Rfam assigns this 84-nucleotide RNA sequence from Pontibacillus halophilus to the family "BsrC". The base pairs follow the family's consensus structure, which was predicted with CMfinder. Rfam's curators write: The 301 nucleotide sequence from Kouji Nakamura has been trimmed to a highly conserved ~85 nucleotide long core to form this family. By type it is a small RNA.

RNA sequence: GUUCACUCAAACGACGCAAUCCCUACCUCUAUUGCAUCCUUACAGCUCCGAAGCUGAUCCAGUGUGAUCGAGUGACAAAACGUA
Numbered sequence: 001g002u003u004c005a006c007u008c009a010a011a012c013g014a015c016g017c018a019a020u021c022c023c024u025a026c027c028u029c030u031a032u033u034g035c036a037u038c039c040u041u042a043c044a045g046c047u048c049c050g051a052a053g054c055u056g057a058u059c060c061a062g063u064g065u066g067a068u069c070g071a072g073u074g075a076c077a078a079a080a081c082g083u084a
Stems, first nucleotide, its partner, number of pairs: 035066002039062002043056005